[Rfam]
RNA sequence: CCCAGUGGUUUGUCAGCUGUCUGGUGCUUAUCCAUGCCUAUGAUAGUGUUACACUGCUGGUAGAAAAAAGAUACUGCCAAUUCUUGCUAUUUGCCACUAUCACUGUUUUGGUGAAGUGUCAUUUGCAUCAGGCAGUACCUGGCUUCCUUGAGAGUGCGCUGAACAUUUGCUAGUUUAGUGCUAGUCUGGAAGCACACAUG
Numbered sequence: 001c002c003c004a005g006u007g008g009u010u011u012g013u014c015a016g017c018u019g020u021c022u023g024g025u026g027c028u029u030a031u032c033c034a035u036g037c038c039u040a041u042g043a044u045a046g047u048g049u050u051a052c053a054c055u056g057c058u059g060g061u062a063g064a065a066a067a068a069a070g071a072u073a074c075u076g077c078c079a080a081u082u083c084u085u086g087c088u089a090u091u092u093g094c095c096a097c098u099a100u101c102a103c104u105g106u107u108u109u110g111g112u113g114a115a116g117u118g119u120c121a122u123u124u125g126c127a128u129c130a131g132g133c134a135g136u137a138c139c140u141g142g143c144u145u146c147c148u149u150g151a152g153a154g155u156g157c158g159c160u161g162a163a164c165a166u167u168u169g170c171u172a173g174u175u176u177a178g179u180g181c182u183a184g185u186c187u188g189g190a191a192g193c194a195c196a197c198a199u200g
Stems, first nucleotide, its partner, number of pairs: 002060008012052002016047006022040003026037002072137007085127003092121002095118001097116002101113004142193006156181003160177005
The record is a 200-nucleotide RNA sequence from Hymenochirus boettgeri, which matches "Small nucleolar RNA SNORA74" in Rfam.
About the family: U19 belongs to the H/ACA class of snoRNAs. snoRNAs bind a number of proteins (including dyskerin, Gar1p and Nop10p in the case of the H/ACA class) to form snoRNP complexes. This class are thought to guide the sites of modification of uridines to pseudouridines by forming direct base pairing interactions with substrate RNAs. Targets may include ribosomal and spliceosomal RNAs but the exact functions of many snoRNAs, including U19, are not confirmed.
For this family Rfam cites "Characterization of the intron-encoded U19 RNA, a new mammalian small nucleolar RNA that is not associated with fibrillarin" (Kiss et al., Mol Cell Biol, 1996).
Pairs were carried over by alignment from the consensus structure, which was predicted with PFOLD.
A search with the family's covariance model found it, with a score of 104 bits.
Rfam links the family to the GO terms RNA processing and nucleolus.
Clan: SNORA74 clan.
It is annotated as an H/ACA-box small nucleolar RNA.